[Rfam]
RNA: Burkholderia RNA 7 (anti-hemB)
Organism: Sulfuritalea hydrogenivorans
RNA sequence: UCUCCCGCUUCACCUCCCUGAGCGGGUGCCUUGAACAUUUCAAGGUGUUUCCGCCCUCGACCUUCCUCCCCUUUGGUCGAGGGCUUUUAUUU
Numbered sequence: 001u002c003u004c005c006c007g008c009u010u011c012a013c014c015u016c017c018c019u020g021a022g023c024g025g026g027u028g029c030c031u032u033g034a035a036c037a038u039u040u041c042a043a044g045g046u047g048u049u050u051c052c053g054c055c056c057u058c059g060a061c062c063u064u065c066c067u068c069c070c071c072u073u074u075g076g077u078c079g080a081g082g083g084c085u086u087u088u089a090u091u092u
Stems, first nucleotide, its partner, number of pairs: 004026006028046007053084010